[Rfam]
RNA sequence: AGUGAGAGGAAUGUCGUCUGGUUCGAAGCCAUUGACAGAGAAGAAGAAGCUCAUGAGAUUCAUAGGCUUUAUCACUGUAGAUGAUUUCGGACCAGGCUUCAUUCCCCUCAAC
Numbered sequence: 001a002g003u004g005a006g007a008g009g010a011a012u013g014u015c016g017u018c019u020g021g022u023u024c025g026a027a028g029c030c031a032u033u034g035a036c037a038g039a040g041a042a043g044a045a046g047a048a049g050c051u052c053a054u055g056a057g058a059u060u061c062a063u064a065g066g067c068u069u070u071a072u073c074a075c076u077g078u079a080g081a082u083g084a085u086u087u088c089g090g091a092c093c094a095g096g097c098u099u100c101a102u103u104c105c106c107c108u109c110a111a112c
Stems, first nucleotide, its partner, number of pairs: 003110004008105006016097006024089003